[Rfam]
RNA: Bacillaceae-1 RNA
RNA sequence: UAAGAAGGAACAGCGACUAAGAGCGCUACGUCCGCAUAUCUUCGUCGCUGUGACUCUCAUCGUGAGAG
Numbered sequence: 001u002a003a004g005a006a007g008g009a010a011c012a013g014c015g016a017c018u019a020a021g022a023g024c025g026c027u028a029c030g031u032c033c034g035c036a037u038a039u040c041u042u043c044g045u046c047g048c049u050g051u052g053a054c055u056c057u058c059a060u061c062g063u064g065a066g067a068g
Base pairs, nucleotide, nucleotide: 011050012049013048014047015046016045017044025040027038028037054068055067056066057065058064